[Rfam]
RNA sequence: GGCCUCUCUCUGAGGGGCGAUCAAUUGUGGAGAUCCCCAUUGAUUGCCCCACAGAGGGUGGCC
Numbered sequence: 001g002g003c004c005u006c007u008c009u010c011u012g013a014g015g016g017g018c019g020a021u022c023a024a025u026u027g028u029g030g031a032g033a034u035c036c037c038c039a040u041u042g043a044u045u046g047c048c049c050c051a052c053a054g055a056g057g058g059u060g061g062c063c
Base pairs, nucleotide, nucleotide: 001063002062003061004060006058007057008056009055010054011053012052014050015049016048017047018046019045020044021043022042023041024040025039027038029036030035
Rfam assigns this 63-nucleotide RNA from Cnephaeus nilssonii to the family "mir-9242 microRNA precursor family". NCBI's taxonomy places the organism under Eukaryota, Dipnotetrapodomorpha, Amniota, Laurasiatheria, Cnephaeus. Pairs were carried over by alignment from the consensus structure, which was predicted with RNAalifold. Rfam 15.1 lists 940 matches to the family in 18 species. Rfam links the family to the GO terms miRNA-mediated post-transcriptional gene silencing and RISC complex.